[Rfam]
RNA sequence: AGUAAUAGAAUAGGUGACUCAAGGGUGGUUGGCUCAUUCCCGUUUAGAAGGGGGUGGUGCCAAUGACAGUAUUCGAAGGAUUAAUGCUAACAUUCACAUUCGGAGCAUUAAUUGUAACGAUACUCUCAUUUAACCAAAAACAAAAAUAACCCAUCCUUGAGUUAACGGCUCAAUUUAGGAUGGAUUAUUUCAUUCCCGAUGCCAAUCCCCUUGUAGGGAACCUGCUUAUUACAUUGACCGUUUGGUGUUCGCGCACCAAGCG
Number, nucleotide and partner (000 for none) at each position: 001a230002g229003u000004a227005a226006u000007a000008g223009a000010a000011u205012a000013g203014g202015u201016g200017a000018c161019u160020c159021a158022a157023g156024g155025g154026u000027g151028g150029u149030u148031g000032g000033c000034u057035c056036a055037u000038u054039c053040c052041c051042g000043u000044u000045u000046a000047g000048a000049a000050g000051g041052g040053g039054g038055u036056g035057g034058u000059g000060c000061c000062a000063a000064u000065g127066a126067c000068a124069g123070u122071a121072u000073u000074c000075g000076a000077a000078g093079g000080a000081u000082u000083a000084a000085u000086g000087c000088u000089a000090a000091c000092a000093u078094u000095c000096a000097c000098a000099u000100u000101c000102g000103g118104a000105g000106c000107a000108u000109u000110a000111a000112u000113u000114g000115u000116a000117a000118c103119g000120a000121u071122a070123c069124u068125c000126u066127c065128a000129u000130u000131u000132a000133a000134c000135c000136a000137a000138a000139a000140a000141c000142a000143a000144a000145a000146a000147u000148a030149a029150c028151c027152c000153a000154u025155c024156c023157u022158u021159g020160a019161g018162u000163u000164a000165a000166c000167g000168g000169c000170u000171c000172a000173a190174u000175u000176u000177a000178g000179g000180a000181u000182g000183g000184a000185u000186u000187a000188u000189u000190u173191c000192a000193u000194u000195c000196c000197c000198g000199a000200u016201g015202c014203c013204a000205a011206u219207c218208c217209c216210c000211u000212u000213g000214u000215a000216g209217g208218g207219a206220a000221c000222c000223u008224g000225c000226u005227u004228a000229u002230u001231a000232c000233a000234u000235u000236g000237a000238c000239c262240g261241u260242u259243u258244g257245g256246u255247g254248u253249u000250c000251g000252c000253g248254c247255a246256c245257c244258a243259a242260g241261c240262g239

The family of this 262-nucleotide RNA sequence from Sporosarcina sp. JAI121 is "BsrG". The family has 6 seed sequences and 614 matches in Rfam 15.1. From the family's description: bsrE, bsrG and bsrH pair through intermolecular interactions with antisense sRNAs. They form type I toxin/antitoxin system that includes an mRNA encoding for a short, toxic peptide (bsrE, bsrG and bsrH) and an antitoxin that is comprised of an antisense RNA. bsrG encodes a 39-amino-acid toxin, and the 180 nucleotide antisense sRNA called SR4 acts as the antitoxin (they overlap by 123 nucleotides). SR4 interaction with the 3'UTR of bsrG RNA promotes bsrG degradation and inhibits its translation. BsrG interferes with cell envelope biosynthesis, causes membrane invaginations and delocalisation of the cell wall synthesis and initiates autolysis. bsrE RNA encodes 30 amino-acid toxin peptide. Its family is annotated with toxin activity and autolysis in the Gene Ontology. The literature on the family includes a 2016 paper in RNA Biol by Muller et al., "A multistress responsive type I toxin-antitoxin system: bsrE/SR5 from the B. subtilis chromosome".